The family of this 106-nucleotide RNA from Lotus japonicus is "MIR7532 microRNA precursor family". Its family is annotated with RISC complex and miRNA-mediated post-transcriptional gene silencing in the Gene Ontology. Pairs were carried over by alignment from the consensus structure, which was predicted with RNAalifold. Rfam's curators put it in the seed alignment.
RNA sequence: CGGGUCGCAUUGGUUCUGGAAGCUGCCUCUGGUCGUGGUUGGCGCGGUGGUCGGCGCGCUACUUCUCGACCGAGCAGUUCGGAGCAUCUACCGAUGCGUGUUCCCG
Dot-bracket structure: ((((.((((((((((((((..(((((.((.(((((.((.(((((((........)))))))..)).)))))))))))))))))......)))))))))....))))